[Rfam]
RNA sequence: UUCUGAAAAAUAAAGAACUAGAAUGAAUACAGUAAGACUAGGAACCACCUCCUUGGCAAAUCCAAUCUCCCUUGGAUUUGCCUUUUC
Numbered sequence: 001u002u003c004u005g006a007a008a009a010a011u012a013a014a015g016a017a018c019u020a021g022a023a024u025g026a027a028u029a030c031a032g033u034a035a036g037a038c039u040a041g042g043a044a045c046c047a048c049c050u051c052c053u054u055g056g057c058a059a060a061u062c063c064a065a066u067c068u069c070c071c072u073u074g075g076a077u078u079u080g081c082c083u084u085u086u087c
Stems, first nucleotide, its partner, number of pairs: 040053004055082011